[Rfam]
RNA sequence: GCCGGUCCUCGGUAGUGGCCCCCGGACGACCCCAGAGAGAUCUGGACUGCCGUGGGCUUCGAUCGAAGACCGCU
Number, nucleotide and partner (000 for none) at each position: 001g074002c000003c072004g071005g070006u069007c068008c000009u066010c065011g064012g063013u062014a000015g000016u000017g058018g057019c056020c055021c054022c000023c052024g051025g050026a000027c000028g000029a000030c000031c000032c000033c000034a000035g000036a000037g000038a000039g000040a000041u000042c000043u000044g000045g000046a000047c000048u000049g000050c025051c024052g023053u000054g021055g020056g019057c018058u017059u000060c000061g000062a013063u012064c011065g010066a009067a000068g007069a006070c005071c004072g003073c000074u001
A member of the RNA family "Actino-pnp RNA" from Actinomycetospora cinnamomea, 74 nucleotides long.
It scores 59 bits against the family's covariance model.
Taxonomically the source falls in Actinomycetospora (Bacteria, Bacillati, Actinomycetes, Pseudonocardiaceae).